[Rfam]
RNA: 7SK RNA
Organism: Chauna torquata
RNA sequence: AGAGUGAAAGUCAUCUGACCAUAUGCCUAUUGAUCACUGGAGUGGACUUAGCUGAUCUGGCUGCCUAAGUGAAUUCUUCAUCUUUCCUCACAGCCUCUUCAUGCAGACCUCACAAAGCUGCAUGCUGAGAUGAAGAGUGUGAUGCUGUCUGUCAGGCACACCAGUGUCCCUUUCUAGACUCUCCAAACAAGAUUAAAGUCCAAUUGUAGAACGCAGAGCAGCCAAGCUUCCAAGUCUUGAGACUUCCAAAUGAAAAUUUAUAUACAGCAAUUUCCUUUU
Numbered sequence: 001a002g003a004g005u006g007a008a009a010g011u012c013a014u015c016u017g018a019c020c021a022u023a024u025g026c027c028u029a030u031u032g033a034u035c036a037c038u039g040g041a042g043u044g045g046a047c048u049u050a051g052c053u054g055a056u057c058u059g060g061c062u063g064c065c066u067a068a069g070u071g072a073a074u075u076c077u078u079c080a081u082c083u084u085u086c087c088u089c090a091c092a093g094c095c096u097c098u099u100c101a102u103g104c105a106g107a108c109c110u111c112a113c114a115a116a117g118c119u120g121c122a123u124g125c126u127g128a129g130a131u132g133a134a135g136a137g138u139g140u141g142a143u144g145c146u147g148u149c150u151g152u153c154a155g156g157c158a159c160a161c162c163a164g165u166g167u168c169c170c171u172u173u174c175u176a177g178a179c180u181c182u183c184c185a186a187a188c189a190a191g192a193u194u195a196a197a198g199u200c201c202a203a204u205u206g207u208a209g210a211a212c213g214c215a216g217a218g219c220a221g222c223c224a225a226g227c228u229u230c231c232a233a234g235u236c237u238u239g240a241g242a243c244u245u246c247c248a249a250a251u252g253a254a255a256a257u258u259u260a261u262a263u264a265c266a267g268c269a270a271u272u273u274c275c276u277u278u279u
Base pairs, nucleotide, nucleotide: 001096002095004091005090006089007088010085013081017079018078020071021070022069025064026063027060028059029058032057033056034055035054037051038050106159108156109155110154111129113127114126117125118124130152131151132150137148138147139146164227165226167220169218171216172215174213181209182208184206189205190204248279249278250277252274253273254272255271258270259269261267